[Rfam]
RNA sequence: CCCCACGCUGAAGCGCGGGGCUAACGAACUUUGCGCCUACGGCGCG
Numbered sequence: 001c002c003c004c005a006c007g008c009u010g011a012a013g014c015g016c017g018g019g020g021c022u023a024a025c026g027a028a029c030u031u032u033g034c035g036c037c038u039a040c041g042g043c044g045c046g
Stems, first nucleotide, its partner, number of pairs: 001020004006015003033045005

Acido-Lenti-1 RNA: a 46-nucleotide sequence from Occallatibacter riparius. Rfam classes the family as a small RNA. The family's consensus secondary structure is taken from published work.